[Rfam]
RNA sequence: AUGGUGACUUAACGCCGAAGCUUUCCCGUCUAAGUUUGGCCUUCACACAACGUUGUGAACCUGAAUAAGACGCGUCAGCCGUGAUGGCUCCAGGCAUACCGUCUGUCAGCUGCAUCACCAGGGUUCUGUGGGAAACCACCGGGCCUCCCGCAUUUGGAAAGGUGUAGAGAGAUGAAUUCA
Number, nucleotide and partner (000 for none) at each position: 001a000002u000003g000004g173005u000006g000007a000008c000009u000010u000011a000012a165013c164014g163015c162016c161017g000018a000019a000020g079021c078022u077023u000024u000025c074026c000027c072028g071029u070030c069031u000032a000033a000034g066035u065036u064037u063038g062039g061040c000041c000042u000043u000044c000045a000046c000047a000048c000049a000050a000051c000052g000053u000054u000055g000056u000057g000058a000059a000060c000061c039062u038063g037064a036065a035066u034067a000068a000069g030070a029071c028072g027073c000074g025075u000076c000077a022078g021079c020080c000081g118082u117083g116084a115085u114086g000087g000088c000089u000090c000091c000092a000093g000094g000095c000096a000097u000098a000099c000100c000101g000102u000103c000104u000105g000106u000107c000108a000109g000110c000111u000112g000113c000114a085115u084116c083117a082118c081119c000120a000121g146122g145123g144124u143125u142126c141127u000128g139129u138130g137131g136132g000133a000134a000135a000136c131137c130138a129139c128140c000141g126142g125143g124144c123145c122146u121147c157148c156149c000150g000151c000152a000153u000154u000155u000156g148157g147158a000159a000160a000161g016162g015163u014164g013165u012166a000167g000168a000169g000170a000171g000172a000173u004174g000175a000176a000177u000178u000179c000180a000
A member of the RNA family "Molybdenum/Tungsten riboswitch aptamer (Moco RNA motif)" from Bacterioplanoides sp. SCSIO 12839, 180 nucleotides long. The organism belongs to Bacterioplanoides, within Bacteria.